RNA sequence: AUAUUUACCUGGCAGGGAAGAUACCAUGAUCAUGAAGGUGUUCUUUCCAGGGUGAGGCUCAUUCACUGCACUCCGGAUGAGCGGACCCCUGUGAUUUCCCCAAAUGUGGGAAACUUGACUGCAUAAUUUGUGGUAGUGGGGGACUGAAAAAAAAAGUUAAUUAACACACCCAUC
Numbered sequence: 001a002u003a004u005u006u007a008c009c010u011g012g013c014a015g016g017g018a019a020g021a022u023a024c025c026a027u028g029a030u031c032a033u034g035a036a037g038g039u040g041u042u043c044u045u046u047c048c049a050g051g052g053u054g055a056g057g058c059u060c061a062u063u064c065a066c067u068g069c070a071c072u073c074c075g076g077a078u079g080a081g082c083g084g085a086c087c088c089c090u091g092u093g094a095u096u097u098c099c100c101c102a103a104a105u106g107u108g109g110g111a112a113a114c115u116u117g118a119c120u121g122c123a124u125a126a127u128u129u130g131u132g133g134u135a136g137u138g139g140g141g142g143a144c145u146g147a148a149a150a151a152a153a154a155a156g157u158u159a160a161u162u163a164a165c166a167c168a169c170c171c172a173u174c
Stems, first nucleotide, its partner, number of pairs: 012122004016048005023042001025040003049090004054086001057082002060079005092117003095113003099109002142174002
Dot-bracket structure: ...........(((((((((..(.(((..........))).).)))))((((.(..((.(((((..........))))).))...))))).((((((.((.......)).))).))).))))...................((.............................))

A member of the RNA family "U1 spliceosomal RNA" from Ursus maritimus, 174 nucleotides long. Lineage of the source: Eukaryota > Opisthokonta > Amniota > Mammalia > Ursus. About the family: U1 is a small nuclear RNA (snRNA) component of the spliceosome (involved in pre-mRNA splicing). Its 5' end forms complementary base pairs with the 5' splice junction, thus defining the 5' donor site of an intron. There are significant differences in sequence and secondary structure between metazoan and yeast U1 snRNAs, the latter being much longer (568 nucleotides as compared to 164 nucleotides in human). The match comes from Rfam's covariance-model search (120 bits).